[Rfam]
RNA sequence: ACUCCGCCACCGCGGAGCCCGCGCCCAGGGAACCGGGGAACCACUUAUUGGGGUGAAUCGGGCAAGCGCGUGCACGUGCAUCCGCAUGUGCGAGCCCGUAGGAGACCUUCCUGCUCCGAACCCGUCAGCUAACCCGGUAGGCGAGAAGGAAGGAAAGG
Numbered sequence: 001a002c003u004c005c006g007c008c009a010c011c012g013c014g015g016a017g018c019c020c021g022c023g024c025c026c027a028g029g030g031a032a033c034c035g036g037g038g039a040a041c042c043a044c045u046u047a048u049u050g051g052g053g054u055g056a057a058u059c060g061g062g063c064a065a066g067c068g069c070g071u072g073c074a075c076g077u078g079c080a081u082c083c084g085c086a087u088g089u090g091c092g093a094g095c096c097c098g099u100a101g102g103a104g105a106c107c108u109u110c111c112u113g114c115u116c117c118g119a120a121c122c123c124g125u126c127a128g129c130u131a132a133c134c135c136g137g138u139a140g141g142c143g144a145g146a147a148g149g150a151a152g153g154a155a156a157g158g
Base pairs, nucleotide, nucleotide: 011143012142013141019030020029032138033137034136035135036134037133042050043049051123052122053121059098060097061096062095101117102116103115104114
The record is a 158-nucleotide sequence from Streptomyces carminius, which matches "c-di-AMP riboswitch aptamer (ydaO/yuaA leader)" in Rfam. From the family's description: This family represents a conserved RNA structure found upstream of the ydaO and yuaA genes in Bacillus subtilis and related genes in other bacteria. NCBI's taxonomy places the organism under Bacteria, Actinomycetes, Kitasatosporales, Streptomycetaceae, Streptomyces. Its family is annotated with regulation of gene expression and cyclic-di-AMP binding in the Gene Ontology.